[Rfam]
RNA sequence: AUUCAUCCACAGGUGGGGAUUGGUGGCAUUACUUGUGUUAGAUAUAAAGUAUUGCACUUGUCCCGGCCUGAGGAAGAAAG
Number, nucleotide and partner (000 for none) at each position: 001a000002u000003u000004c076005a000006u074007c000008c000009a000010c070011a069012g068013g067014u066015g000016g064017g063018g062019a061020u060021u000022g058023g057024u056025g000026g055027c054028a053029u000030u051031a050032c049033u048034u047035g000036u000037g000038u000039u000040a000041g000042a000043u000044a000045u000046a000047a034048a033049g032050u031051a030052u000053u028054g027055c026056a024057c023058u022059u000060g020061u019062c018063c017064c016065g000066g014067c013068c012069u011070g010071a000072g000073g000074a006075a000076g004077a000078a000079a000080g000
Overview
Rfam assigns this 80-nucleotide RNA sequence to the family "mir-92 microRNA precursor family". The sequence is in the family's curated seed alignment. About the family: This family represents the microRNA precursor mir-92. Human miR-92 has two predicted hairpin precursor sequences: mir-92-1 on chromosome 13 and mir-92-2 on chromosome X. miR-92 has also been cloned from mouse embryonic stem cells. The mature sequence is excised from the 3' arm of the hairpin.